The record is a 92-nucleotide sequence from Bacillus sp. FJAT-27986, which matches "Glycine riboswitch aptamer" in Rfam. Rfam links the family to the GO term glycine biosynthetic process. Pairs were carried over by alignment from the consensus structure. A search with the family's covariance model found it, with a score of 41 bits.

RNA sequence: CUCUGGAGAGCGCUUCCUUUAUUGUGAAGCCACCCAAGAGGAAACGCCGAAGUACGUUACCCGGCGGUAAACUUUCAGGUAUCAGGACAGAG
Numbered sequence: 001c002u003c004u005g006g007a008g009a010g011c012g013c014u015u016c017c018u019u020u021a022u023u024g025u026g027a028a029g030c031c032a033c034c035c036a037a038g039a040g041g042a043a044a045c046g047c048c049g050a051a052g053u054a055c056g057u058u059a060c061c062c063g064g065c066g067g068u069a070a071a072c073u074u075u076c077a078g079g080u081a082u083c084a085g086g087a088c089a090g091a092g
Stems, first nucleotide, its partner, number of pairs: 001092005012030004032080003036075001039074003045067001